[Rfam]
RNA sequence: GGCAAUAAAUGGUCAGCGCAAUAAACCUAUCGGACCCGGGGGCGGUACCCGGCGCCUCCACCCAAGCCCGCAGGAUCUCUGCGGGUUUCGGCGGGGGCGAAAUAGGAUCGACGAGGGCGUAAAGGCUGGACUUUUGCUCGGCAUGGUACCACCGACAUCGGGCCAUCUUAAUAGUUGCAAAUGACAACUAUGCUAUGGACAACGCUGUUGCUGCGUAA
Numbered sequence: 001g002g003c004a005a006u007a008a009a010u011g012g013u014c015a016g017c018g019c020a021a022u023a024a025a026c027c028u029a030u031c032g033g034a035c036c037c038g039g040g041g042g043c044g045g046u047a048c049c050c051g052g053c054g055c056c057u058c059c060a061c062c063c064a065a066g067c068c069c070g071c072a073g074g075a076u077c078u079c080u081g082c083g084g085g086u087u088u089c090g091g092c093g094g095g096g097g098c099g100a101a102a103u104a105g106g107a108u109c110g111a112c113g114a115g116g117g118c119g120u121a122a123a124g125g126c127u128g129g130a131c132u133u134u135u136g137c138u139c140g141g142c143a144u145g146g147u148a149c150c151a152c153c154g155a156c157a158u159c160g161g162g163c164c165a166u167c168u169u170a171a172u173a174g175u176u177g178c179a180a181a182u183g184a185c186a187a188c189u190a191u192g193c194u195a196u197g198g199a200c201a202a203c204g205c206u207g208u209u210g211c212u213g214c215g216u217a218a
Stems, first nucleotide, its partner, number of pairs: 001138005014128004026117003030114003036052005053099007139154003
Dot-bracket structure: (((((........((((........(((.(((...(((((.......)))))(((((((.................................)))))))............)))))).......)))).....)))))(((..........)))................................................................